[Rfam]
The family of this 120-nucleotide RNA sequence from Hymenobacter ginkgonis is "SAM riboswitch aptamer (S box leader)".
RNA sequence: CACUUAUCAAGAAAGGCGGAGGGACAGGCCCUAUGAUGCCUUAGCAACCAGCAGCAAUGCGAAGGUGCUAAUUCCUGUUCUGAAACGCGGUUCCGGCCAAGUUUCAGGAGAAGAUAAGUC
Numbered sequence: 001c002a003c004u005u006a007u008c009a010a011g012a013a014a015g016g017c018g019g020a021g022g023g024a025c026a027g028g029c030c031c032u033a034u035g036a037u038g039c040c041u042u043a044g045c046a047a048c049c050a051g052c053a054g055c056a057a058u059g060c061g062a063a064g065g066u067g068c069u070a071a072u073u074c075c076u077g078u079u080c081u082g083a084a085a086c087g088c089g090g091u092u093c094c095g096g097c098c099a100a101g102u103u104u105c106a107g108g109a110g111a112a113g114a115u116a117a118g119u120c
Base pairs, nucleotide, nucleotide: 002119003118004117005116006115007114008113013042014041015040016039017038021031022030023029025077026076027075028074043069044068045067046066048065049064051060052059053058073112078109079108080107081106082105083104084103085102086101
NCBI's taxonomy places the organism under Bacteria, Pseudomonadati, Bacteroidota, Hymenobacteraceae, Hymenobacter.